[Rfam]
RNA sequence: UUUGCCGGGGUGGGCAGGCCCUGCGGCCAACUAACCCUAAUGGCGGCUGCGCCCCUCACACGCGCCCGCUGUUUUACUCGCUGACUUUCAGCGGGCAGAGGGCGCGGCCCACGGGAAAGGGGGGGCGGUGAUGGCGGGGAAAAGAGUUCCGGCCUCAAAAAAAGCCAGCGAUGGGGAUCCACACCCCGGCCCACCCUGGGGUCCCUGUCCCUCCAGGGACCUGUCCAGGGAUGGUCCAGCCCUCGCCCCUCGUGGAGGCCGCGGUCGGUAGGCCCAGCGCCGCUGCCGCCGCGAAGAGUUCGUCUCUGUCAGCCUCGGCGGUGGCCGGGACCUGAGGGCCGGCCCGCCUACCCUGGGCAGCCGGGGGACCCCAGCAGAGCAAAACGGGUGCGGCGCCGCGGGGCGCUGAGCAGCCGCGGCUCCCAGAGAUGUGGGAGUGCGCGGUCGGCGCCGCCCCGACAUCC
Numbered sequence: 001u002u003u004g005c006c007g008g009g010g011u012g013g014g015c016a017g018g019c020c021c022u023g024c025g026g027c028c029a030a031c032u033a034a035c036c037c038u039a040a041u042g043g044c045g046g047c048u049g050c051g052c053c054c055c056u057c058a059c060a061c062g063c064g065c066c067c068g069c070u071g072u073u074u075u076a077c078u079c080g081c082u083g084a085c086u087u088u089c090a091g092c093g094g095g096c097a098g099a100g101g102g103c104g105c106g107g108c109c110c111a112c113g114g115g116a117a118a119g120g121g122g123g124g125g126c127g128g129u130g131a132u133g134g135c136g137g138g139g140a141a142a143a144g145a146g147u148u149c150c151g152g153c154c155u156c157a158a159a160a161a162a163a164g165c166c167a168g169c170g171a172u173g174g175g176g177a178u179c180c181a182c183a184c185c186c187c188g189g190c191c192c193a194c195c196c197u198g199g200g201g202u203c204c205c206u207g208u209c210c211c212u213c214c215a216g217g218g219a220c221c222u223g224u225c226c227a228g229g230g231a232u233g234g235u236c237c238a239g240c241c242c243u244c245g246c247c248c249c250u251c252g253u254g255g256a257g258g259c260c261g262c263g264g265u266c267g268g269u270a271g272g273c274c275c276a277g278c279g280c281c282g283c284u285g286c287c288g289c290c291g292c293g294a295a296g297a298g299u300u301c302g303u304c305u306c307u308g309u310c311a312g313c314c315u316c317g318g319c320g321g322u323g324g325c326c327g328g329g330a331c332c333u334g335a336g337g338g339c340c341g342g343c344c345c346g347c348c349u350a351c352c353c354u355g356g357g358c359a360g361c362c363g364g365g366g367g368a369c370c371c372c373a374g375c376a377g378a379g380c381a382a383a384a385c386g387g388g389u390g391c392g393g394c395g396c397c398g399c400g401g402g403g404c405g406c407u408g409a410g411c412a413g414c415c416g417c418g419g420c421u422c423c424c425a426g427a428g429a430u431g432u433g434g435g436a437g438u439g440c441g442c443g444g445u446c447g448g449c450g451c452c453g454c455c456c457c458g459a460c461a462u463c464c
Stems, first nucleotide, its partner, number of pairs: 004190009014180001016178001019176004053102005064096008080169004085164001086162003196374007229344002232341006241329003245325003260293005266288004271281003295307004388456001390454008414444005421436004
This 464-nucleotide RNA sequence from Zosterops hypoxanthus belongs to the Rfam family "Vertebrate telomerase RNA". Its Rfam clan is "Telomerase clan". The literature on the family includes a 2005 paper in J Biol Chem by Fragnet et al., "Comparative functional study of the viral telomerase RNA based on natural mutations". Gene Ontology terms of the family: telomerase catalytic core complex, telomerase activity and telomere maintenance via telomerase. Telomerase is a ribonucleoprotein reverse transcriptase that synthesises telomeric DNA. Telomerase RNAs differ greatly in sequence and structure between vertebrates, ciliates and yeasts, but they share a 5' pseudoknot structure close to the template sequence. Vertebrate telomerase RNAs have a 3' H/ACA snoRNA-like domain. It scores 151 bits against the family's covariance model. The family has 37 seed sequences and 523 matches in Rfam 15.1. Lineage of the source: Eukaryota > Eumetazoa > Tetrapoda > Telluraves > Zosterops.